[Rfam]
RNA sequence: AUACGAAAGUAGAAGCACCAGUUUCUCACCUGCACUCGUUUAGGAUGUUAGGUUAGUAAUAAUUUUAGAAUUAUUUAGGCUGGAUGUAUUAUGUACAUUCAGCCUUUUGUUUUUAU
Numbered sequence: 001a002u003a004c005g006a007a008a009g010u011a012g013a014a015g016c017a018c019c020a021g022u023u024u025c026u027c028a029c030c031u032g033c034a035c036u037c038g039u040u041u042a043g044g045a046u047g048u049u050a051g052g053u054u055a056g057u058a059a060u061a062a063u064u065u066u067a068g069a070a071u072u073a074u075u076u077a078g079g080c081u082g083g084a085u086g087u088a089u090u091a092u093g094u095a096c097a098u099u100c101a102g103c104c105u106u107u108u109g110u111u112u113u114u115a116u
Stems, first nucleotide, its partner, number of pairs: 011026006028053003034048002036045002079103010
Notes: Shown here is a 116-nucleotide RNA sequence from Gemella sp. zg-570, a member of the family "Ribosomal protein L20 leader". This family is a putative r-protein leader autoregulatory structure found in B. subtilis and other low-GC Gram-positive bacteria. It is located in the 5' untranslated regions of mRNAs encoding initiation factor 3 followed by ribosomal proteins L35 and L20 (infC-rpmI-rplT). A Rho-independent transcription terminator structure that is probably involved in regulation is included at the 3' end. The family's consensus secondary structure was predicted with CMfinder. It is annotated as a cis-regulatory leader.